[Rfam]
RNA: FMN riboswitch aptamer (RFN element)
RNA sequence: UCGCGUUCUCAGGGCGGGGCGGAAUUCCCCACCGGCGGUAUCGGGUUGCAUGUCAUGGCGGAAUAGCCACGGGCAGCUCCCGGAGCCCGCGAGCGCCUUCGCCGCCCGGCGAAGGGUCAGCAGAUCCGGUGCGAUGCCGGAGCCGACGGUCAAUAGUCCGGAAGAAAGAGAGCAAGC
Dot-bracket structure: ....((((((......(((.......))).[[((((((................................................))))..((.........................))...(((((.......)))))..)).(((......]]))).......))))))....
Numbered sequence: 001u002c003g004c005g006u007u008c009u010c011a012g013g014g015c016g017g018g019g020c021g022g023a024a025u026u027c028c029c030c031a032c033c034g035g036c037g038g039u040a041u042c043g044g045g046u047u048g049c050a051u052g053u054c055a056u057g058g059c060g061g062a063a064u065a066g067c068c069a070c071g072g073g074c075a076g077c078u079c080c081c082g083g084a085g086c087c088c089g090c091g092a093g094c095g096c097c098u099u100c101g102c103c104g105c106c107c108g109g110c111g112a113a114g115g116g117u118c119a120g121c122a123g124a125u126c127c128g129g130u131g132c133g134a135u136g137c138c139g140g141a142g143c144c145g146a147c148g149g150u151c152a153a154u155a156g157u158c159c160g161g162a163a164g165a166a167a168g169a170g171a172g173c174a175a176g177c
Stems, first nucleotide, its partner, number of pairs: 005173006017029003031157002033145002035090004093121002125141005147160003